RNA sequence: CCCCUGCAUCCAGAGUUGGUACCCGACGGUACCAACGCCAACCUGCCUCUCCCGGGCAAGGUGGUUGCCUCAAGGCGAUGCGGCCGAUGGUCGGCAACGAAGCGGGAAGCG
Numbered sequence: 001c002c003c004c005u006g007c008a009u010c011c012a013g014a015g016u017u018g019g020u021a022c023c024c025g026a027c028g029g030u031a032c033c034a035a036c037g038c039c040a041a042c043c044u045g046c047c048u049c050u051c052c053c054g055g056g057c058a059a060g061g062u063g064g065u066u067g068c069c070u071c072a073a074g075g076c077g078a079u080g081c082g083g084c085c086g087a088u089g090g091u092c093g094g095c096a097a098c099g100a101a102g103c104g105g106g107a108a109g110c111g
Base pairs, nucleotide, nucleotide: 006081007080008079009078010077015036016035017034018033019032020031021030022029023028037065038064039063042061043060044059045057046056047055050106051105052104083095084094085093086092
RNA: SAM-I/IV (S-adenosyl methionine) riboswitch aptamer